[Rfam]
RNA sequence: AAUUCUCCGCACCGGGGAAGGAUGAGAAGCUUCGACAAGGUUCGGUUGAGCGUAGCGAAACAACGCGCUUCAGCGCGGCCCGAAGGGUGAGGAGCGCAGCGACGAAUAAUCCUUCCCCCACCACCA
Numbered sequence: 001a002a003u004u005c006u007c008c009g010c011a012c013c014g015g016g017g018a019a020g021g022a023u024g025a026g027a028a029g030c031u032u033c034g035a036c037a038a039g040g041u042u043c044g045g046u047u048g049a050g051c052g053u054a055g056c057g058a059a060a061c062a063a064c065g066c067g068c069u070u071c072a073g074c075g076c077g078g079c080c081c082g083a084a085g086g087g088u089g090a091g092g093a094g095c096g097c098a099g100c101g102a103c104g105a106a107u108a109a110u111c112c113u114u115c116c117c118c119c120a121c122c123a124c125c126a
Base pairs, nucleotide, nucleotide: 015117016116017115018114019113020112021111023109033089034088036086041084042083043082044081047057048056064077065076066075067074068073
RtT RNA: a 126-nucleotide sequence from Serratia rubidaea. Rfam 15.1 lists 651 matches to the family in 204 species. For this family Rfam cites "A novel RNA product of the tyrT operon of Escherichia coli" (Bosl and Kersten, Nucleic Acids Res, 1991). A search with the family's covariance model found it, with a score of 109 bits. Rfam describes the family as follows. This family represents a bacterial cis-regulatory element known as RtT RNA. The exact function of RtT is unknown although it is thought that it may be involved in changing the cellular response in relation to amino acid starvation.